Rfam assigns this 169-nucleotide sequence from Firmicutes bacterium CAG:646 to the family "Clostridiales-1 RNA". The match comes from Rfam's covariance-model search (114 bits). Lineage of the source: Bacteria > Bacillati > Bacillota. The base pairs follow the family's consensus structure, which is taken from published work.

RNA sequence: AGAUGCCAGGGUCAUAAGUUCAUAAACCACGUUGUGCUUGCACAUAAGUGGUUUUAUGCCUUUAUGACCCACCCAAAAAUGAGAAUAAAAGCGGGGGUAUACCCUGCGAUAUUCGAAUUUUGGACAGAAUUGUGAAAGUGCGCAGCACGAAACAAUUCGUCUGGCAUCU
Number, nucleotide and partner (000 for none) at each position: 001a169002g168003a167004u166005g165006c164007c163008a000009g000010g069011g068012u067013c066014a000015u000016a063017a062018g061019u000020u000021c058022a057023u056024a055025a054026a052027c051028c050029a049030c048031g000032u000033u044034g043035u042036g041037c000038u000039u000040g000041c036042a035043c034044a033045u000046a000047a000048g030049u029050g028051g027052u026053u000054u025055u024056a023057u022058g021059c000060c000061u018062u017063u016064a000065u000066g013067a012068c011069c010070c000071a000072c000073c000074c123075a000076a121077a120078a119079a118080u117081g000082a000083g114084a113085a112086u111087a000088a000089a000090a000091g107092c106093g105094g104095g103096g102097g000098u000099a000100u000101a000102c096103c095104c094105u093106g092107c091108g000109a000110u000111a086112u085113u084114c083115g000116a000117a080118u079119u078120u077121u076122g000123g074124a000125c000126a000127g158128a157129a156130u155131u154132g153133u152134g000135a000136a000137a000138g148139u147140g146141c145142g000143c000144a000145g141146c140147a139148c138149g000150a000151a000152a133153c132154a131155a130156u129157u128158c127159g000160u000161c000162u000163g007164g006165c005166a004167u003168c002169u001